[Rfam]
RNA: Small nucleolar RNA snoR111
RNA sequence: AUCGUAAUGAGAGAUGACUAUGUAAAGUGCUUCUUCUCAUUGAGAAAUCUGAUUUCUAUAGAGGCAACAACAAUGUGGCAAGAUAUCGUUUCAUUCGUCAAGUGUAAUUGGCGAUUUGAUUGUUGCUUCUCCAUAU
Numbered sequence: 001a002u003c004g005u006a007a008u009g010a011g012a013g014a015u016g017a018c019u020a021u022g023u024a025a026a027g028u029g030c031u032u033c034u035u036c037u038c039a040u041u042g043a044g045a046a047a048u049c050u051g052a053u054u055u056c057u058a059u060a061g062a063g064g065c066a067a068c069a070a071c072a073a074u075g076u077g078g079c080a081a082g083a084u085a086u087c088g089u090u091u092c093a094u095u096c097g098u099c100a101a102g103u104g105u106a107a108u109u110g111g112c113g114a115u116u117u118g119a120u121u122g123u124u125g126c127u128u129c130u131c132c133a134u135a136u
Base pairs, nucleotide, nucleotide: 006041007040008039009038010037011036013033014032016030077132078131080128081127082126085120086119087118088117095114096113097112098111099110100109103107